[Rfam]
Plastid-psbA-1 3UTR RNA: a 122-nucleotide RNA from Hevea brasiliensis.

RNA sequence: UUGAAGUUCUAUCUACAAAUGGAUAAAACUUCCAUUUUAAUGUGCGUGAGUUUUUGAAAACUAAAAAAAAAAAAGCAAUUAUAAUCCUCUUGAUAAAAUAAGAAAUUGAAUAUUGCUAUUUU
Numbered sequence: 001u002u003g004a005a006g007u008u009c010u011a012u013c014u015a016c017a018a019a020u021g022g023a024u025a026a027a028a029c030u031u032c033c034a035u036u037u038u039a040a041u042g043u044g045c046g047u048g049a050g051u052u053u054u055u056g057a058a059a060a061c062u063a064a065a066a067a068a069a070a071a072a073a074a075g076c077a078a079u080u081a082u083a084a085u086c087c088u089c090u091u092g093a094u095a096a097a098a099u100a101a102g103a104a105a106u107u108g109a110a111u112a113u114u115g116c117u118a119u120u121u122u
Stems, first nucleotide, its partner, number of pairs: 008023005069122004074117006084107001088103004
Dot-bracket structure: .......(((((......))))).............................................((((.((((((....(...((((........))))...)....)))))).))))
The base pairs follow the family's consensus structure, which was predicted with LocARNA.